[Rfam]
RNA: small nucleolar RNA snoR134
RNA sequence: CUGCAUGUUGCACCAUGGGCUUUUCUGAAUAAACCUUUUUUAGCAAUGAAGAAAAAUGUCUCAAUGCUCGUGCUAGAUAUAUGAUGUUCAGUGUUUUGUUCCUUCAGCUGACACUUUGUCAAAGUAAUGUCUACAAUU
Dot-bracket structure: ..(((((..((.....((((.(((((.......................))).))..))))....)).))))).........((((((...((.(.((.............))....).))....)))))).......